[Rfam]
The record is a 96-nucleotide RNA sequence from Camphora micrantha, which matches "MIR535 microRNA precursor family" in Rfam. A reference for the family is Zeng et al. (2010), "Conservation and divergence of microRNAs and their functions in Euphorbiaceous plants", Nucleic Acids Res. The source organism's lineage runs through Eukaryota, Viridiplantae, Streptophytina, Magnoliidae and Camphora.
RNA sequence: UUCUUCGCUUGACAACGAGAGAGAGCACGCUCGUCCACAUUCAUGCAAGGGUAAAUGACUGUGUACAUGCGUGCUCUCUCUCGUUGCCAUUGAAAU
Numbered sequence: 001u002u003c004u005u006c007g008c009u010u011g012a013c014a015a016c017g018a019g020a021g022a023g024a025g026c027a028c029g030c031u032c033g034u035c036c037a038c039a040u041u042c043a044u045g046c047a048a049g050g051g052u053a054a055a056u057g058a059c060u061g062u063g064u065a066c067a068u069g070c071g072u073g074c075u076c077u078c079u080c081u082c083g084u085u086g087c088c089a090u091u092g093a094a095a096u
Stems, first nucleotide, its partner, number of pairs: 010089002013086002016083002020079002023076001025074006033066002